[Rfam]
RNA sequence: GCGGGUAUAACUCAAUGGUAGAGUGUUAGCCUUCCAAGCUAAUUACGAGGGUUCGAUUCCCUCUACCCGCU
Numbered sequence: 001g002c003g004g005g006u007a008u009a010a011c012u013c014a015a016u017g018g019u020a021g022a023g024u025g026u027u028a029g030c031c032u033u034c035c036a037a038g039c040u041a042a043u044u045a046c047g048a049g050g051g052u053u054c055g056a057u058u059c060c061c062u063c064u065a066c067c068c069g070c071u
Stems, first nucleotide, its partner, number of pairs: 001070007010024004026042005047063005
RNA: tRNA
Organism: Clostridium tagluense